Background: Ribosomal protein L10 leader: a 117-nucleotide sequence from Agrilactobacillus composti. Pairs were carried over by alignment from the consensus structure, which was predicted with CMfinder. Gene Ontology term of the family: regulation of gene expression.
RNA sequence: GUCUCGGUUGUUUUAUUGCCUAAGACUCAGGUGACAUUAAUGUCUCAAUAUCCUGCCGAGGAAACACGUUAAGUAAUUUCUCUAUGUCUUAUGGCAUGGAGUUUUUUUAUACUCCGA
Numbered sequence: 001g002u003c004u005c006g007g008u009u010g011u012u013u014u015a016u017u018g019c020c021u022a023a024g025a026c027u028c029a030g031g032u033g034a035c036a037u038u039a040a041u042g043u044c045u046c047a048a049u050a051u052c053c054u055g056c057c058g059a060g061g062a063a064a065c066a067c068g069u070u071a072a073g074u075a076a077u078u079u080c081u082c083u084a085u086g087u088c089u090u091a092u093g094g095c096a097u098g099g100a101g102u103u104u105u106u107u108u109a110u111a112c113u114c115c116g117a
Stems, first nucleotide, its partner, number of pairs: 028055004033044003080101009